The record is a 70-nucleotide sequence, which matches "DUF3800-X RNA" in Rfam. The family's RNA type in Rfam is small RNA.
RNA sequence: UAACGAGUAAGUCCUACUGAACGAAUGACGGCUCAGGAUUGAGCUCAGGACCAGUAAGUAGGGGUCGUUA
Numbered sequence: 001u002a003a004c005g006a007g008u009a010a011g012u013c014c015u016a017c018u019g020a021a022c023g024a025a026u027g028a029c030g031g032c033u034c035a036g037g038a039u040u041g042a043g044c045u046c047a048g049g050a051c052c053a054g055u056a057a058g059u060a061g062g063g064g065u066c067g068u069u070a
Stems, first nucleotide, its partner, number of pairs: 001070006013063003016059003031044005
Pairs were carried over by alignment from the consensus structure, which is taken from published work. Rfam's curators put it in the seed alignment.